The record is a 100-nucleotide RNA sequence from Prolemur simus, which matches "Y RNA" in Rfam. The literature on the family includes a 2000 paper in Nucleic Acids Res by Teunissen et al., "Conserved features of Y RNAs: a comparison of experimentally derived secondary structures". The family's consensus secondary structure is taken from published work.
RNA sequence: GGCUGGUCCCAGUGCAGUAGUGUUUAUAACUAAUUGAUCACAACCAGUUACAGAUUCCUUUGUUCCUUCUCCACUCCCACUGCUUCACUUAACUAGGAGA
Numbered sequence: 001g002g003c004u005g006g007u008c009c010c011a012g013u014g015c016a017g018u019a020g021u022g023u024u025u026a027u028a029a030c031u032a033a034u035u036g037a038u039c040a041c042a043a044c045c046a047g048u049u050a051c052a053g054a055u056u057c058c059u060u061u062g063u064u065c066c067u068u069c070u071c072c073a074c075u076c077c078c079a080c081u082g083c084u085u086c087a088c089u090u091a092a093c094u095a096g097g098a099g100a
Stems, first nucleotide, its partner, number of pairs: 003096005011089001014086001016081003020077001022076001028064003032060002